[Rfam]
RNA sequence: AAUAUUUUCUAAAUUUCAGUAUUUGUAUCACUCAUCGUCAUUUCUAUUCUCCCCUUUACCUCGGUUAGUUUCGCCGAGGUUUUU
Numbered sequence: 001a002a003u004a005u006u007u008u009c010u011a012a013a014u015u016u017c018a019g020u021a022u023u024u025g026u027a028u029c030a031c032u033c034a035u036c037g038u039c040a041u042u043u044c045u046a047u048u049c050u051c052c053c054c055u056u057u058a059c060c061u062c063g064g065u066u067a068g069u070u071u072c073g074c075c076g077a078g079g080u081u082u083u084u
Stems, first nucleotide, its partner, number of pairs: 058080008

Shown here is an 84-nucleotide RNA sequence from Nostoc sp. PCC 7107, a member of the family "Photosynthesis regulatory RNA1".
Lineage of the source: Bacteria > Bacillati > Cyanobacteriota > Nostocaceae > Nostoc.
A search with the family's covariance model found it, with a score of 59 bits.
By type it is a small RNA.
The family's consensus secondary structure was predicted with CMfinder.
Rfam describes the family as follows. Formerly known as Syr1 discovered in Synechocystis sp PCC 6803, is a regulatory factor controlling photosynthetic functions.
On this family, see Georg et al., Plant Cell 2014: "The small regulatory RNA SyR1/PsrR1 controls photosynthetic functions in cyanobacteria".